[Rfam]
RNA: small nucleolar RNA snoR135
Organism: Chenopodium quinoa
RNA sequence: AUAGCUGGGAUUGUGUGUAUCAGUAUUAUGCGGCAAUCUUGCACUCUACGCUGAAAGAAUUCCCUGCAAACAUCAUCAUCCAUUGGGAAGAUGGGCAGUUGAGUUUCUUUUCAUAUCUAUGGACAUCUCAACAAUCAUCUUCCCUAAACCA
Numbered sequence: 001a002u003a004g005c006u007g008g009g010a011u012u013g014u015g016u017g018u019a020u021c022a023g024u025a026u027u028a029u030g031c032g033g034c035a036a037u038c039u040u041g042c043a044c045u046c047u048a049c050g051c052u053g054a055a056a057g058a059a060u061u062c063c064c065u066g067c068a069a070a071c072a073u074c075a076u077c078a079u080c081c082a083u084u085g086g087g088a089a090g091a092u093g094g095g096c097a098g099u100u101g102a103g104u105u106u107c108u109u110u111u112c113a114u115a116u117c118u119a120u121g122g123a124c125a126u127c128u129c130a131a132c133a134a135u136c137a138u139c140u141u142c143c144c145u146a147a148a149c150c151a
Stems, first nucleotide, its partner, number of pairs: 004067002007064004015044005085144010098132004